This 114-nucleotide RNA sequence from Pseudonocardia oroxyli belongs to the Rfam family "SAM (S-adenosyl methionine) riboswitch aptamer". Clan: SAM clan. Rfam links the family to the GO terms regulation of gene expression and S-adenosylmethionine metabolic process. The match comes from Rfam's covariance-model search (105 bits).
[Rfam]
RNA sequence: GGUCAUGAGUGCCAGCGUCAAGCCCCGGCUCGCUGGUCGGCAACCCUCCUCCGCGGUGGGGUGCUCCGGGUGACGACCCGGCCGCCGCGAACCCGCGUGCGGCAAGCGCGGACC
Numbered sequence: 001g002g003u004c005a006u007g008a009g010u011g012c013c014a015g016c017g018u019c020a021a022g023c024c025c026c027g028g029c030u031c032g033c034u035g036g037u038c039g040g041c042a043a044c045c046c047u048c049c050u051c052c053g054c055g056g057u058g059g060g061g062u063g064c065u066c067c068g069g070g071u072g073a074c075g076a077c078c079c080g081g082c083c084g085c086c087g088c089g090a091a092c093c094c095g096c097g098u099g100c101g102g103c104a105a106g107c108g109c110g111g112a113c114c
Base pairs, nucleotide, nucleotide: 001078002077003076004075009038011037012036013035014034015033016032021030022029039065040064041063044061045060046059048056049055081103082102083101084100085099086097087096088095089094